[Rfam]
RNA sequence: CAUCGACGCCUGAUCACGUCGUAGUCUGAUUGAGGCUCGUCCCCCGCCGCUUCAGACUUGGACAAAGGCCUUAUCCCCCUCUCCGGGCCUUUGUCCCUAUAUUCUGAAGCCGUCGUGGCAGUCCCCCCCGCCCGCCACGACGGCUUUAU
Number, nucleotide and partner (000 for none) at each position: 001c000002a000003u000004c000005g000006a000007c000008g000009c000010c000011u000012g000013a000014u000015c000016a000017c000018g000019u000020c000021g000022u000023a000024g000025u056026c055027u054028g053029a052030u000031u000032g000033a000034g048035g047036c046037u000038c000039g000040u000041c000042c000043c000044c000045c000046g036047c035048c034049g000050c000051u000052u029053c028054a027055g026056a025057c000058u000059u000060g096061g095062a094063c093064a092065a091066a090067g089068g088069c087070c086071u000072u000073a000074u000075c000076c000077c000078c000079c000080u000081c000082u000083c000084c000085g000086g070087g069088c068089c067090u066091u065092u064093g063094u062095c061096c060097c000098u000099a000100u000101a000102u000103u000104c000105u000106g000107a000108a145109g000110c143111c142112g141113u140114c139115g138116u137117g136118g135119c134120a000121g132122u000123c000124c000125c000126c000127c000128c000129c000130g000131c000132c121133c000134g119135c118136c117137a116138c115139g114140a113141c112142g111143g110144c000145u108146u000147u000148a000149u000
RNA: Alphaproteobacterial sRNA ar7